[Rfam]
RNA: Purine riboswitch aptamer
Organism: Virgibacillus phasianinus
Nucleotides: 100
Base pairs, nucleotide, nucleotide: 018086019085020084021083022082023081024080025079031047032046033045034044035043058076059075060074061073062072063071
Number, partner (000 for none) and nucleotide at each position: 001000a002000a003000c004000a005000a006000a007000u008000g009000a010000a011000u012000a013000c014000g015000g016000g017000u018086u019085c020084c021083u022082c023081a024080u025079a026000u027000a028000u029000a030000c031047c032046u033045g034044a035043g036000a037000a038000u039000a040000u041000g042000g043035c044034u045033c046032a047031g048000a049000a050000g051000u052000u053000u054000c055000u056000a057000c058076c059075c060074a061073g062072c063071a064000c065000c066000g067000u068000a069000a070000a071063u072062g073061c074060u075059g076058g077000a078000c079025u080024a081023u082022g083021a084020g085019g086018g087000a088000g089000g090000a091000u092000g093000a094000a095000u096000c097000g098000u099000u100000g